[Rfam]
RNA sequence: AUAAUGAGACUUCCGUCUGGGAUUCCGGGCGGCUCGGUGAGAACCACGGAGGGGUUAGAUUCCCAUGG
Numbered sequence: 001a002u003a004a005u006g007a008g009a010c011u012u013c014c015g016u017c018u019g020g021g022a023u024u025c026c027g028g029g030c031g032g033c034u035c036g037g038u039g040a041g042a043a044c045c046a047c048g049g050a051g052g053g054g055u056u057a058g059a060u061u062c063c064c065a066u067g068g
Stems, first nucleotide, its partner, number of pairs: 012065001013032008033051003037047003052064003
Dot-bracket structure: ...........(((((((((....))))))))(((.(((.....))).)))(((.......))))...
The family of this 68-nucleotide RNA sequence is "pemK RNA". It is annotated as a cis-regulatory element. The sequence is in the family's curated seed alignment.